[Rfam]
RNA sequence: CAACCCAUACAGCGAUGUAUGGCUGAACUCUAAGGAGUCAGCAGAGGUCAUAGUACCAAAGGUAGUCGACGACCAUUGGGAAGGAC
Numbered sequence: 001c002a003a004c005c006c007a008u009a010c011a012g013c014g015a016u017g018u019a020u021g022g023c024u025g026a027a028c029u030c031u032a033a034g035g036a037g038u039c040a041g042c043a044g045a046g047g048u049c050a051u052a053g054u055a056c057c058a059a060a061g062g063u064a065g066u067c068g069a070c071g072a073c074c075a076u077u078g079g080g081a082a083g084g085a086c
Stems, first nucleotide, its partner, number of pairs: 001025002005022007038045002047086003056079004061074001

Notes
The family of this 86-nucleotide RNA sequence from Anaeromicropila herbilytica is "Group II catalytic intron D1-D4-1". A search with the family's covariance model found it, with a score of 70 bits. Group II introns are found in rRNA, tRNA and mRNA of organelles in fungi, plants and protists, and also in mRNA in bacteria. The base pairs follow the family's consensus structure.